[Rfam]
RNA sequence: UUGCUGUGAUGACUAUCUUAGGACACCUUUGGAACACCCGUGAAAAGAAAAUAGUUGUUAUUUCUGAGCAGC
Numbered sequence: 001u002u003g004c005u006g007u008g009a010u011g012a013c014u015a016u017c018u019u020a021g022g023a024c025a026c027c028u029u030u031g032g033a034a035c036a037c038c039c040g041u042g043a044a045a046a047g048a049a050a051a052u053a054g055u056u057g058u059u060a061u062u063u064c065u066g067a068g069c070a071g072c
Base pairs, nucleotide, nucleotide: 001071002070003069004068
Rfam assigns this 72-nucleotide RNA from Antrostomus carolinensis to the family "Small nucleolar RNA SNORD58".
Rfam classes the family as a C/D-box small nucleolar RNA.
From the family's description: snoRNA U58 is found in introns 1, 3 and 6 of the ribosomal protein RPL17 gene in humans.
Rfam links the family to the GO terms nucleolus and RNA processing.
The organism belongs to Antrostomus, within Eukaryota.